Shown here is a 335-nucleotide part of an RNA from Mesonia phycicola, a member of the family "Bacterial large subunit ribosomal RNA". The family's consensus secondary structure is taken from published work. It scores 2745 bits against the family's covariance model. The source organism's lineage runs through Bacteria, Pseudomonadati, Flavobacteriia, Flavobacteriales and Mesonia.
RNA sequence: CGAGAGAUUCAUGGCUAAGGAACUAGGCAAAAUCGACCCGUAACUUCGGGAGAAGGGUCGCCCCACUUCGGUGGGGCCGCAGUGAAGAGGUCCAGGCGACUGUUUAUCAAAAACACAGGGCUCUGCAAAAUCGAAAGAUGAAGUAUAGGGCCUGACACCUGCCCGGUGCCGGAAGGUUAAGAGGAGAUGUCAUCUUCGGAGAAGCAUUGAAUUGAAGCCCCGGUAAACGGCGGCCGUAACUAUAACGGUCCUAAGGUAGCGAAAUUCCUUGUCGGGUAAGUUCCGACCUGCACGAAUGGUGCAACGAUCUGGACACUGUCUCAGCCAUGAGCUCG
Numbered sequence: 001c002g003a004g005a006g007a008u009u010c011a012u013g014g015c016u017a018a019g020g021a022a023c024u025a026g027g028c029a030a031a032a033u034c035g036a037c038c039c040g041u042a043a044c045u046u047c048g049g050g051a052g053a054a055g056g057g058u059c060g061c062c063c064c065a066c067u068u069c070g071g072u073g074g075g076g077c078c079g080c081a082g083u084g085a086a087g088a089g090g091u092c093c094a095g096g097c098g099a100c101u102g103u104u105u106a107u108c109a110a111a112a113a114c115a116c117a118g119g120g121c122u123c124u125g126c127a128a129a130a131u132c133g134a135a136a137g138a139u140g141a142a143g144u145a146u147a148g149g150g151c152c153u154g155a156c157a158c159c160u161g162c163c164c165g166g167u168g169c170c171g172g173a174a175g176g177u178u179a180a181g182a183g184g185a186g187a188u189g190u191c192a193u194c195u196u197c198g199g200a201g202a203a204g205c206a207u208u209g210a211a212u213u214g215a216a217g218c219c220c221c222g223g224u225a226a227a228c229g230g231c232g233g234c235c236g237u238a239a240c241u242a243u244a245a246c247g248g249u250c251c252u253a254a255g256g257u258a259g260c261g262a263a264a265u266u267c268c269u270u271g272u273c274g275g276g277u278a279a280g281u282u283c284c285g286a287c288c289u290g291c292a293c294g295a296a297u298g299g300u301g302c303a304a305c306g307a308u309c310u311g312g313a314c315a316c317u318g319u320c321u322c323a324g325c326c327a328u329g330a331g332c333u334c335g
Base pairs, nucleotide, nucleotide: 001335002334003333004332009330010329011328012327013326014325015324016323018321019320020319035059036058037057038056039055044049060077061076062075063074064073065072066071078082090314091313092312093311094310095309096308097306098305101115102114103113118153119152120151121150122149123148124147125146126143130139131138132137156301157300158299159298161231162230163229166228167227168224169223170222171221172220175219176218177217181213182212186208187207188206189205190204193200194199232250233249234248235247236246237245251255261288271287272286273285274284275283276282